A member of the RNA family "Archaeal large subunit ribosomal RNA" from Methanosphaera stadtmanae, 414 nucleotides of a longer RNA. Lineage of the source: Archaea > Methanobacteriota > Methanobacteriales > Methanobacteriaceae > Methanosphaera stadtmanae. It is one of the family's seed sequences.
[Rfam]
RNA sequence: AGUAGUAGCAGCAAAGUAAAGUGUGAAUCUUUAUCGCCGAAGGGGCUAGGGUUCCUUGGCAAUGUUCGUCAGCCAAGGGUUAGGCGGUCCUAAGGGUAACGGUAAUUCCAGUUAUUCGAAAGGGAAACAGGUUAAUAUUCCUGUCCAACACAAUUUACACGGCAACGUUUAUGUUGGAUAUUUUUGACACUUCGUGAUAUGCCUUGUAAGAUUGUCGUCUUAUUCAAAUUUUAGAAGCUAAGGGAGAACUGUAAUAGUGAGAACUUGGUGUAUUUAUGAUUGAGUCUCUCGUUUUUUUGAGAGAUUAUCUGGUUGAUUCAUGGAGUCCUUGAAAAGAAAAUAUCCAUUUAUUUGAUUGUGUUUCCGUACCGAGAUCCGACACAGGUGCCCCUAGUUUAGUAGACUUAGGCGUGU
Numbered sequence: 001a002g003u004a005g006u007a008g009c010a011g012c013a014a015a016g017u018a019a020a021g022u023g024u025g026a027a028u029c030u031u032u033a034u035c036g037c038c039g040a041a042g043g044g045g046c047u048a049g050g051g052u053u054c055c056u057u058g059g060c061a062a063u064g065u066u067c068g069u070c071a072g073c074c075a076a077g078g079g080u081u082a083g084g085c086g087g088u089c090c091u092a093a094g095g096g097u098a099a100c101g102g103u104a105a106u107u108c109c110a111g112u113u114a115u116u117c118g119a120a121a122g123g124g125a126a127a128c129a130g131g132u133u134a135a136u137a138u139u140c141c142u143g144u145c146c147a148a149c150a151c152a153a154u155u156u157a158c159a160c161g162g163c164a165a166c167g168u169u170u171a172u173g174u175u176g177g178a179u180a181u182u183u184u185u186g187a188c189a190c191u192u193c194g195u196g197a198u199a200u201g202c203c204u205u206g207u208a209a210g211a212u213u214g215u216c217g218u219c220u221u222a223u224u225c226a227a228a229u230u231u232u233a234g235a236a237g238c239u240a241a242g243g244g245a246g247a248a249c250u251g252u253a254a255u256a257g258u259g260a261g262a263a264c265u266u267g268g269u270g271u272a273u274u275u276a277u278g279a280u281u282g283a284g285u286c287u288c289u290c291g292u293u294u295u296u297u298u299g300a301g302a303g304a305u306u307a308u309c310u311g312g313u314u315g316a317u318u319c320a321u322g323g324a325g326u327c328c329u330u331g332a333a334a335a336g337a338a339a340a341u342a343u344c345c346a347u348u349u350a351u352u353u354g355a356u357u358g359u360g361u362u363u364c365c366g367u368a369c370c371g372a373g374a375u376c377c378g379a380c381a382c383a384g385g386u387g388c389c390c391c392u393a394g395u396u397u398a399g400u401a402g403a404c405u406u407a408g409g410c411g412u413g414u
Stems, first nucleotide, its partner, number of pairs: 016034006035411004043390004049370002054078006063071002085366003089123002094117006101109002127144005147362008181339003189326009201313003206223005228285004238268005248258003297302001376385002393405003